[Rfam]
RNA sequence: GCCUCGUCGGGAGUUCCCUUCAAGCACUUCAGGAAGCAUCUUUUGUAGGGCAUUUCUGAAGUGUUUGGGGGAACUCUUGUUGUCAC
Numbered sequence: 001g002c003c004u005c006g007u008c009g010g011g012a013g014u015u016c017c018c019u020u021c022a023a024g025c026a027c028u029u030c031a032g033g034a035a036g037c038a039u040c041u042u043u044u045g046u047a048g049g050g051c052a053u054u055u056c057u058g059a060a061g062u063g064u065u066u067g068g069g070g071g072a073a074c075u076c077u078u079g080u081u082g083u084c085a086c
Base pairs, nucleotide, nucleotide: 005082006081008079009078011076012075013074014073015072016071017070018069019068020067022066023065024064025063026062027061028060029059030058031057032056033055034054035053